The family of this 116-nucleotide sequence from Brachypodium distachyon is "MIR5070 microRNA precursor family". The match comes from Rfam's covariance-model search (108 bits). Pairs were carried over by alignment from the consensus structure, which was predicted with RNAalifold. The organism belongs to Brachypodium, within Eukaryota.

RNA sequence: UAAGGUAUCAUUUGACCCUUCUUAGUUCAAUCAAAUGAACUAAAAUUUUAAAAUGACACAACUUUUUAAAAAACUAGUUCAUUUGUUUGAACUAAGGAGAAUCAAAAGGUACCCUG
Numbered sequence: 001u002a003a004g005g006u007a008u009c010a011u012u013u014g015a016c017c018c019u020u021c022u023u024a025g026u027u028c029a030a031u032c033a034a035a036u037g038a039a040c041u042a043a044a045a046u047u048u049u050a051a052a053a054u055g056a057c058a059c060a061a062c063u064u065u066u067u068a069a070a071a072a073a074c075u076a077g078u079u080c081a082u083u084u085g086u087u088u089g090a091a092c093u094a095a096g097g098a099g100a101a102u103c104a105a106a107a108g109g110u111a112c113c114c115u116g
Stems, first nucleotide, its partner, number of pairs: 002115001004113006011106005018099013032085011